[Rfam]
RNA sequence: GGACUCAGAUUAGGCAAGAUGUUGGCAUAGCUGAGUCUCAUUAUAAAUGUUCAGCUGUGUCCCAUAUUGCCACCUUUGGGUCUA
Numbered sequence: 001g002g003a004c005u006c007a008g009a010u011u012a013g014g015c016a017a018g019a020u021g022u023u024g025g026c027a028u029a030g031c032u033g034a035g036u037c038u039c040a041u042u043a044u045a046a047a048u049g050u051u052c053a054g055c056u057g058u059g060u061c062c063c064a065u066a067u068u069g070c071c072a073c074c075u076u077u078g079g080g081u082c083u084a
Stems, first nucleotide, its partner, number of pairs: 005079005013071005019065003024061008

Background
This 84-nucleotide RNA from Mytilus edulis belongs to the Rfam family "mir-31 microRNA precursor family". Pairs were carried over by alignment from the consensus structure, which was predicted with RNAalifold. A search with the family's covariance model found it, with a score of 60 bits. Gene Ontology terms of the family: RISC complex and gene silencing by miRNA.